[Rfam]
RNA sequence: AACUACGGUCCGGGCAAAUACCCCGGCAAUGUCCGGACCGUCGAGGGGUCCCAGCGCAAGCUGGGGCCCCUGUCUUUUU
Numbered sequence: 001a002a003c004u005a006c007g008g009u010c011c012g013g014g015c016a017a018a019u020a021c022c023c024c025g026g027c028a029a030u031g032u033c034c035g036g037a038c039c040g041u042c043g044a045g046g047g048g049u050c051c052c053a054g055c056g057c058a059a060g061c062u063g064g065g066g067c068c069c070c071u072g073u074c075u076u077u078u079u
Base pairs, nucleotide, nucleotide: 006040007039008038009037010036011035012034013033014032045070046069047068048067049066050065051064052063054061055060
RNA: Bradyrhizobiaceae sRNA BjrC68
Organism: Rhodopseudomonas palustris